[Rfam]
The family of this 173-nucleotide sequence from Carnobacterium sp. AT7 is "Group II catalytic intron D1-D4-3".
RNA sequence: UCCAUUGUGAAGUGGAAUCUGAAGGAAGCCGGACGCAAACACUCGCACUGACGAACAGAAACCUCAUAUAAGGCUGACUGGAGAGGGACGAGCUUGCUAAACAAAGCAAAGUCCAAUACUGCACGAAUCUUCUACAGUAAAUGAGGCAGUGACAUGAGUGGAAGGUUAUCAUU
Dot-bracket structure: ((((((....))))))...........(..((..((...(((((((((((...........((((((.....(((....(((((.((((..((((........))))...)))).............)))))...)))..)))))))))))...))))))....))..))..)

Rfam describes the family as follows. Group II introns are found in rRNA, tRNA and mRNA of organelles in fungi, plants and protists, and also in mRNA in bacteria. The base pairs follow the family's consensus structure. Taxonomically the source falls in Carnobacterium (Bacteria, Bacillati, Bacillota, Carnobacteriaceae).